[Rfam]
RNA sequence: UGGCUGUAGCUAUAGAAAGAAGUGGGAAGUCAACUGGUCGGCAUGCUCCUUUAGUGUUUGAUGAGCAUUCCGCUUACCAAACUUCGCGCAUUU
Numbered sequence: 001u002g003g004c005u006g007u008a009g010c011u012a013u014a015g016a017a018a019g020a021a022g023u024g025g026g027a028a029g030u031c032a033a034c035u036g037g038u039c040g041g042c043a044u045g046c047u048c049c050u051u052u053a054g055u056g057u058u059u060g061a062u063g064a065g066c067a068u069u070c071c072g073c074u075u076a077c078c079a080a081a082c083u084u085c086g087c088g089c090a091u092u093u
Stems, first nucleotide, its partner, number of pairs: 024087001026085005036074003040070002045066004
This 93-nucleotide RNA sequence from Vanilla planifolia belongs to the Rfam family "Small nucleolar RNA snoR109". The match comes from Rfam's covariance-model search (45 bits). The literature on the family includes a 2002 paper in Curr Biol by Marker et al., "Experimental RNomics: identification of 140 candidates for small non-messenger RNAs in the plant Arabidopsis thaliana".